Shown here is a 68-nucleotide RNA, a member of the family "nadA riboswitch". Pairs were carried over by alignment from the consensus structure, which is taken from published work. Rfam classes the family as a small RNA. The literature on the family includes a 2020 paper in RNA by Huang et al., "Structure and ligand binding of the ADP-binding domain of the NAD(+) riboswitch".
[Rfam]
RNA sequence: GGCUUCAACAUCCCCGCCGGUUGGGCGCGCCGUAGUUUCAAACGUCGCGUAGUGAAUCGGCUGGAGCC
Numbered sequence: 001g002g003c004u005u006c007a008a009c010a011u012c013c014c015c016g017c018c019g020g021u022u023g024g025g026c027g028c029g030c031c032g033u034a035g036u037u038u039c040a041a042a043c044g045u046c047g048c049g050u051a052g053u054g055a056a057u058c059g060g061c062u063g064g065a066g067c068c
Stems, first nucleotide, its partner, number of pairs: 001068007013054001014052001016061007023053001025050005031044002